Nucleotides: 082
Base pairs, nucleotide, nucleotide: 008021009020010019011018039067040066041065042064043063044062045061046060047059
Number, partner (000 for none) and nucleotide at each position: 001000g002000g003000c004000g005000c006000a007000u008021g009020c010019c011018c012000u013000u014000c015000u016000u017000u018011g019010g020009g021008c022000g023000u024000u025000u026000c027000c028000u029000c030000c031000c032000u033000a034000g035000a036000c037000u038000u039067g040066g041065g042064c043063c044062g045061c046060u047059c048000g049000c050000c051000a052000u053000c054000a055000g056000g057000c058000u059047g060046a061045g062044c063043g064042g065041c066040c067039c068000u069000u070000u071000u072000u073000u074000c075000u076000g077000g078000g079000a080000c081000g082000g

Background: The record is an 82-nucleotide RNA from Lichenibacterium minor, which matches "Makes More Granules Regulator RNA (mmgR)" in Rfam. By type it is a small RNA. Rfam's curators write: SuhB later renamed mmgR (makes more granules regulator) was a putative non-coding RNA found multiple times in the Agrobacterium tumefaciens genome and related alpha-proteobacteria.